[Rfam]
About this RNA: A member of the RNA family "mir-1175 microRNA precursor family" from Lottia gigantea, 73 nucleotides long. NCBI's taxonomy places the organism under Eukaryota, Opisthokonta, Spiralia, Lottiidae, Lottia.
RNA sequence: CAAUGUAGUGGAGAGAGUUUUAUCUCAUCUCUCAAACAAAACAGAUGAGAUUCAACUCCUCCAACUGCAAGUU
Numbered sequence: 001c002a003a004u005g006u007a008g009u010g011g012a013g014a015g016a017g018u019u020u021u022a023u024c025u026c027a028u029c030u031c032u033c034a035a036a037c038a039a040a041a042c043a044g045a046u047g048a049g050a051u052u053c054a055a056c057u058c059c060u061c062c063a064a065c066u067g068c069a070a071g072u073u
Stems, first nucleotide, its partner, number of pairs: 006067003009063005015058002023049001025048006
Dot-bracket structure: .....((((((((.((......(.((((((............))))))).......))))))).)))......